[Rfam]
RNA sequence: AGUAAAGAUAGAGGCGCGUUUUUAAAGAGUAACUGCCAGGAUUACGACAGGGUAAGAGGAAUGGCGGCCAAAGGGAAAAACGCCGAAGGGCCCGGUACUGUCAGCCGGCUUCCUGGGGUUAUUGUGAAGAACAAUAAUACUGUCAUCGAAAGAUGGAGUGCUGUCAAAACU
Numbered sequence: 001a002g003u004a005a006a007g008a009u010a011g012a013g014g015c016g017c018g019u020u021u022u023u024a025a026a027g028a029g030u031a032a033c034u035g036c037c038a039g040g041a042u043u044a045c046g047a048c049a050g051g052g053u054a055a056g057a058g059g060a061a062u063g064g065c066g067g068c069c070a071a072a073g074g075g076a077a078a079a080a081c082g083c084c085g086a087a088g089g090g091c092c093c094g095g096u097a098c099u100g101u102c103a104g105c106c107g108g109c110u111u112c113c114u115g116g117g118g119u120u121a122u123u124g125u126g127a128a129g130a131a132c133a134a135u136a137a138u139a140c141u142g143u144c145a146u147c148g149a150a151a152g153a154u155g156g157a158g159u160g161c162u163g164u165c166a167a168a169a170c171u
Stems, first nucleotide, its partner, number of pairs: 007165005016083008033067006087114004092108005115141002118138008143156005
A member of the RNA family "Lysine riboswitch aptamer" from Eubacterium callanderi, 171 nucleotides long.
The match comes from Rfam's covariance-model search (96 bits).
Rfam describes the family as follows. Riboswitches are metabolite binding domains within certain messenger RNAs that serve as precision sensors for their corresponding targets. Allosteric rearrangement of mRNA structure is mediated by ligand binding, and this results in modulation of gene expression. This family includes riboswitches that sense lysine in a number of genes involved in lysine metabolism, including lysC.